[Rfam]
RNA: Bacterial small signal recognition particle RNA
RNA sequence: UUUCGGUUCCUCGCAAUGAUGUCUGGUUUACCCGGUCAGGUUCGGAAGAAAGCAGCCAAGGUCAGAAUUUUCGUGUGCCGAGAUCAAGCUGGGAGGG
Numbered sequence: 001u002u003u004c005g006g007u008u009c010c011u012c013g014c015a016a017u018g019a020u021g022u023c024u025g026g027u028u029u030a031c032c033c034g035g036u037c038a039g040g041u042u043c044g045g046a047a048g049a050a051a052g053c054a055g056c057c058a059a060g061g062u063c064a065g066a067a068u069u070u071u072c073g074u075g076u077g078c079c080g081a082g083a084u085c086a087a088g089c090u091g092g093g094a095g096g097g
Stems, first nucleotide, its partner, number of pairs: 004091005010082004014075001016074004021069001022066007034057003041050003